[Rfam]
RNA: Rhizobiales sRNA Atu_C8
RNA sequence: GCCCGCCAUGAACACCAUUCUCGUAGUAGGUCCGCGCAGCGCCGGGGAAGCUUAAGCUUCCAGGAACUGGUGGUGCUGCGCGGAAAUCAGGCUCCCUUGGGGGCCUUUUUUAUUGCCUGAA
Numbered sequence: 001g002c003c004c005g006c007c008a009u010g011a012a013c014a015c016c017a018u019u020c021u022c023g024u025a026g027u028a029g030g031u032c033c034g035c036g037c038a039g040c041g042c043c044g045g046g047g048a049a050g051c052u053u054a055a056g057c058u059u060c061c062a063g064g065a066a067c068u069g070g071u072g073g074u075g076c077u078g079c080g081c082g083g084a085a086a087u088c089a090g091g092c093u094c095c096c097u098u099g100g101g102g103g104c105c106u107u108u109u110u111u112a113u114u115g116c117c118u119g120a121a
Base pairs, nucleotide, nucleotide: 009026029117030116031115033082034081035080036079037078038077039076040075041074042073046061047060048059049058050057064071089106090105091104092103093102094101095100